[Rfam]
RNA sequence: UUACGUUCUCGGGGCGGGGUGCGAUUCCCCACCGGCGGUAAUGACACAGUUUGCGUGUCUAGCCCGCGAGCGCUUGCUGGAGCUUCCAUCCGGUUGCCGGAUUUCUUCAGCAAGGUCAGCAGACUCGGUGUGAUCCCGAGGCCGACGGUCAUAGUCCGGAUGAUAGAGAACGGGA
Numbered sequence: 001u002u003a004c005g006u007u008c009u010c011g012g013g014g015c016g017g018g019g020u021g022c023g024a025u026u027c028c029c030c031a032c033c034g035g036c037g038g039u040a041a042u043g044a045c046a047c048a049g050u051u052u053g054c055g056u057g058u059c060u061a062g063c064c065c066g067c068g069a070g071c072g073c074u075u076g077c078u079g080g081a082g083c084u085u086c087c088a089u090c091c092g093g094u095u096g097c098c099g100g101a102u103u104u105c106u107u108c109a110g111c112a113a114g115g116u117c118a119g120c121a122g123a124c125u126c127g128g129u130g131u132g133a134u135c136c137c138g139a140g141g142c143c144g145a146c147g148g149u150c151a152u153a154g155u156c157c158g159g160a161u162g163a164u165a166g167a168g169a170a171c172g173g174g175a
Base pairs, nucleotide, nucleotide: 004172005171006170007169008168009167010166017029018028019027031155032154033144034143035067036066037065038064062142063141070120071119124140125139126138127137128136146158147157148156

Background
A member of the RNA family "FMN riboswitch aptamer (RFN element)" from Herminiimonas arsenicoxydans, 175 nucleotides long. The family's consensus secondary structure is taken from published work. It scores 109 bits against the family's covariance model.